A member of the RNA family "Mammalian CPEB3 ribozyme" from Diatraea saccharalis, 76 nucleotides long. The mammalian CPEB3 ribozyme is a self cleaving RNA located in the second intron of the CPEB3 gene which belongs to a family of genes regulating messenger RNA polyadenylation. Taxonomically the source falls in Diatraea (Eukaryota, Metazoa, Dicondylia, Glossata).
Nucleotides: 076
Base pairs, nucleotide, nucleotide: 013048014047015046016045017044018043023076024075025074026073027072028071029070030042031041032040052066053065054064055063056062057061
Number, partner (000 for none) and nucleotide at each position: 001000u002000c003000u004000u005000u006000a007000a008000a009000u010000a011000u012000g013048g014047g015046g016045g017044u018043c019000a020000u021000g022000a023076u024075c025074c026073a027072g028071a029070a030042g031041c032040g033000u034000g035000c036000u037000c038000g039000u040032c041031g042030c043018g044017a045016c046015c047014c048013c049000u050000g051000c052066c053065a054064a055063u056062c057061c058000a059000g060000u061057g062056g063055a064054u065053u066052g067000c068000a069000a070029u071028u072027c073026u074025g075024g076023a